[Rfam]
RNA sequence: GUAGAUAUAGUUCAAAGGUAGAACAGCUGUGUGUGGAACAGCAUAUCCUAGUUCGAGUCUAGGUAUCUACC
Numbered sequence: 001g002u003a004g005a006u007a008u009a010g011u012u013c014a015a016a017g018g019u020a021g022a023a024c025a026g027c028u029g030u031g032u033g034u035g036g037a038a039c040a041g042c043a044u045a046u047c048c049u050a051g052u053u054c055g056a057g058u059c060u061a062g063g064u065a066u067c068u069a070c071c
Stems, first nucleotide, its partner, number of pairs: 001070007010024004026042005047063005